[Rfam]
RNA sequence: GGCACAGUUACUGCAUAUGCUAGGACAGAGCCGCGAACAGCGUACUGUUCGGGGAGUCGGCACAGGGGGCGGCAUCACCGCUUU
Numbered sequence: 001g002g003c004a005c006a007g008u009u010a011c012u013g014c015a016u017a018u019g020c021u022a023g024g025a026c027a028g029a030g031c032c033g034c035g036a037a038c039a040g041c042g043u044a045c046u047g048u049u050c051g052g053g054g055a056g057u058c059g060g061c062a063c064a065g066g067g068g069g070c071g072g073c074a075u076c077a078c079c080g081c082u083u084u
Base pairs, nucleotide, nucleotide: 031054032053034051035050036049037048038047039046040045056073057072058071059070061068

rpfG RNA: an 84-nucleotide RNA from Xanthomonas fragariae. Rfam's curators put it in the seed alignment. The family's consensus secondary structure is taken from published work.